[Rfam]
RNA sequence: CCCAGCUCAAGUUCUGUGAUACACUUAGACUCUGAGUCGGAAGCAGUCAGUGCAUAACAGAACUUUGGUUUGGA
Numbered sequence: 001c002c003c004a005g006c007u008c009a010a011g012u013u014c015u016g017u018g019a020u021a022c023a024c025u026u027a028g029a030c031u032c033u034g035a036g037u038c039g040g041a042a043g044c045a046g047u048c049a050g051u052g053c054a055u056a057a058c059a060g061a062a063c064u065u066u067g068g069u070u071u072g073g074a
Stems, first nucleotide, its partner, number of pairs: 004070004009065008022052004028048004
Rfam assigns this 74-nucleotide RNA from Acipenser ruthenus to the family "mir-148/mir-152 microRNA precursor family". The literature on the family includes a 2002 paper in Curr Biol by Lagos-Quintana et al., "Identification of tissue-specific microRNAs from mouse". NCBI's taxonomy places the organism under Eukaryota, Chordata, Gnathostomata, Acipenseriformes, Acipenser. Rfam links the family to the GO terms miRNA-mediated post-transcriptional gene silencing and RISC complex.